[Rfam]
The family of this 149-nucleotide RNA is "Cyanobacterial functional RNA 11". It is annotated as a small RNA.

RNA sequence: AAUCGAAUGGAGGGAUUAGAAAUGAUUGAUAGUCCACCAGAGAAUUUAUUAAGAUUGGUUUAAGCAGCCAGCCUAUUAGAAAAAAAUUACUAGCAAUUAAAUAAGUGAAUUAGAUUGGCUCCUUGAGGAUGGAGUCAAUCUCUUUUUUA
Numbered sequence: 001a002a003u004c005g006a007a008u009g010g011a012g013g014g015a016u017u018a019g020a021a022a023u024g025a026u027u028g029a030u031a032g033u034c035c036a037c038c039a040g041a042g043a044a045u046u047u048a049u050u051a052a053g054a055u056u057g058g059u060u061u062a063a064g065c066a067g068c069c070a071g072c073c074u075a076u077u078a079g080a081a082a083a084a085a086a087u088u089a090c091u092a093g094c095a096a097u098u099a100a101a102u103a104a105g106u107g108a109a110u111u112a113g114a115u116u117g118g119c120u121c122c123u124u125g126a127g128g129a130u131g132g133a134g135u136c137a138a139u140c141u142c143u144u145u146u147u148u149a
Stems, first nucleotide, its partner, number of pairs: 011098002014027005030092004045080004050075002053072001056071001057069004108145002112141006120133003
Dot-bracket structure: ..........((.(((((....)))))..((((...........((((.((.(..(((((.....)))).)).)).))))........))))....)).........((..((((((..(((........)))..))))))..))....